[Rfam]
RNA sequence: UUCGCCGAUGCCAAGCUGCCCGACAUGCAGGCGGGAUGGGAGCAGAUGUGCUCGAACGUCCUCGCCGGGCUCUCGGGGCUGAACCUCGUUUACGAGGCCG
Numbered sequence: 001u002u003c004g005c006c007g008a009u010g011c012c013a014a015g016c017u018g019c020c021c022g023a024c025a026u027g028c029a030g031g032c033g034g035g036a037u038g039g040g041a042g043c044a045g046a047u048g049u050g051c052u053c054g055a056a057c058g059u060c061c062u063c064g065c066c067g068g069g070c071u072c073u074c075g076g077g078g079c080u081g082a083a084c085c086u087c088g089u090u091u092a093c094g095a096g097g098c099c100g
Stems, first nucleotide, its partner, number of pairs: 033062003077098001079096002